[Rfam]
RNA: Bacterial large subunit ribosomal RNA, nucleotides 2659 to 2919
RNA sequence: GGAGACUUGAGAGGGCCUGUCCCUAGUACGAGAGGACCGGGAUGGACGCACCCCUGGUGGUCCUGUUGUCACGCCAGUGGCACAGCAGGGUAGCUAUGUGCGGAAGGGAUAACCGCUGAAAGCAUCUAAGCGGGAAGCCUGCCUCAAGAUAAGGUCUCCCUCUCUUCGGAGCUGAAGGGCCCGGGUAGACAACCCGGUUGAUAGGCUGGAGGUAUACAUGCGGUGACGCAUUCAGCUGACCAGUACUAAUAGCCCGUGCGC
Numbered sequence: 001g002g003a004g005a006c007u008u009g010a011g012a013g014g015g016c017c018u019g020u021c022c023c024u025a026g027u028a029c030g031a032g033a034g035g036a037c038c039g040g041g042a043u044g045g046a047c048g049c050a051c052c053c054c055u056g057g058u059g060g061u062c063c064u065g066u067u068g069u070c071a072c073g074c075c076a077g078u079g080g081c082a083c084a085g086c087a088g089g090g091u092a093g094c095u096a097u098g099u100g101c102g103g104a105a106g107g108g109a110u111a112a113c114c115g116c117u118g119a120a121a122g123c124a125u126c127u128a129a130g131c132g133g134g135a136a137g138c139c140u141g142c143c144u145c146a147a148g149a150u151a152a153g154g155u156c157u158c159c160c161u162c163u164c165u166u167c168g169g170a171g172c173u174g175a176a177g178g179g180c181c182c183g184g185g186u187a188g189a190c191a192a193c194c195c196g197g198u199u200g201a202u203a204g205g206c207u208g209g210a211g212g213u214a215u216a217c218a219u220g221c222g223g224u225g226a227c228g229c230a231u232u233c234a235g236c237u238g239a240c241c242a243g244u245a246c247u248a249a250u251a252g253c254c255c256g257u258g259c260g261c
Stems, first nucleotide, its partner, number of pairs: 001159008011145004017045007047102005055096003062089005067082006106140003113133005162171003174257001177255004181197005202248003205244005211237002218231005